[Rfam]
RNA: Bacteroidales small SRP
RNA sequence: AAAUCUGGGGCAAGUUCCAUACAGUCAGCUCCCUGUGAACUCCGUCAGGGUCGGAAGGCAGCAGCGGUAGCAGGUCGUAGCGGCGUGAUAUGGGUAGCUUGCCCCUCU
Number, nucleotide and partner (000 for none) at each position: 001a000002a000003a000004u000005c000006u000007g000008g104009g103010g102011c101012a100013a099014g098015u097016u000017c093018c092019a091020u090021a089022c087023a086024g084025u083026c000027a000028g000029c000030u000031c000032c000033c000034u000035g000036u000037g000038a000039a000040c000041u000042c000043c000044g000045u000046c000047a000048g000049g000050g000051u000052c000053g000054g000055a000056a000057g000058g000059c000060a000061g000062c000063a000064g000065c000066g000067g000068u000069a000070g000071c000072a000073g000074g000075u000076c000077g000078u000079a000080g000081c000082g000083g025084c024085g000086u023087g022088a000089u021090a020091u019092g018093g017094g000095u000096a000097g015098c014099u013100u012101g011102c010103c009104c008105c000106u000107c000108u000